[Rfam]
RNA: Purine riboswitch aptamer
Organism: Paenibacillus sp. yr247
RNA sequence: GCCACAUACGUAUUAAUCGUUCGUAUAUCCUUGAGAAUUGGCUUAAGGGUCUCUAGAGGGAGCCGUAACUUCCUAGCUACGACGGGUACUUGCUUUUGC
Number, nucleotide and partner (000 for none) at each position: 001g000002c000003c000004a000005c000006a000007u000008a000009c000010g000011u000012a000013u000014u000015a000016a000017u000018c085019g000020u000021u082022c081023g080024u079025a078026u000027a000028u000029c048030c047031u046032u045033g044034a043035g042036a000037a000038u000039u000040g000041g000042c035043u034044u033045a032046a031047g030048g029049g000050u000051c000052u000053c000054u000055a000056g000057a074058g073059g072060g071061a070062g069063c000064c000065g000066u000067a000068a000069c062070u061071u060072c059073c058074u057075a000076g000077c000078u025079a024080c023081g022082a021083c000084g000085g018086g000087u000088a000089c000090u000091u000092g000093c000094u000095u000096u000097u000098g000099c000